[Rfam]
RNA sequence: GUUUUUUUCCCAUCUGUGUCUUAUGAUGAAGCUUCAUAGGGCAGAUUCUGAGCUGAGAAAUGAAAUCUCUCCACUGAUAUUUACUGUAUGCCAUCUGAAGACACAGUUUAUUAC
Numbered sequence: 001g002u003u004u005u006u007u008u009c010c011c012a013u014c015u016g017u018g019u020c021u022u023a024u025g026a027u028g029a030a031g032c033u034u035c036a037u038a039g040g041g042c043a044g045a046u047u048c049u050g051a052g053c054u055g056a057g058a059a060a061u062g063a064a065a066u067c068u069c070u071c072c073a074c075u076g077a078u079a080u081u082u083a084c085u086g087u088a089u090g091c092c093a094u095c096u097g098a099a100g101a102c103a104c105a106g107u108u109u110a111u112u113a114c
Stems, first nucleotide, its partner, number of pairs: 014106008031094001035090003040082002044078001047077002050074001052072001055069003
RNA: Small nucleolar RNA SNORD90